RNA sequence: CUGGGCUACGGCGACAUGUACCCCAAGACCUGGUCGGGCAUGGUGGUGGGGGCGCUCUGCGCCUUGGCCGGCGUGCUCACCAUUGCCAUGCCCGUGCCCGUCAUAGUCAAUAAC
Numbered sequence: 001c002u003g004g005g006c007u008a009c010g011g012c013g014a015c016a017u018g019u020a021c022c023c024c025a026a027g028a029c030c031u032g033g034u035c036g037g038g039c040a041u042g043g044u045g046g047u048g049g050g051g052g053c054g055c056u057c058u059g060c061g062c063c064u065u066g067g068c069c070g071g072c073g074u075g076c077u078c079a080c081c082a083u084u085g086c087c088a089u090g091c092c093c094g095u096g097c098c099c100g101u102c103a104u105a106g107u108c109a110a111u112a113a114c
Stems, first nucleotide, its partner, number of pairs: 002113001004111001008107002011104001013102003018097004037077004049063002
The family of this 114-nucleotide RNA sequence from Eudromia elegans is "Potassium channel RNA editing signal". Its family is annotated with adenosine to inosine editing in the Gene Ontology. The family's consensus secondary structure is taken from published work. NCBI's taxonomy places the organism under Eukaryota, Vertebrata, Euteleostomi, Saurischia, Eudromia. It scores 98 bits against the family's covariance model. The family has 85 seed sequences and 14,095 matches in Rfam 15.1. It is annotated as a cis-regulatory element.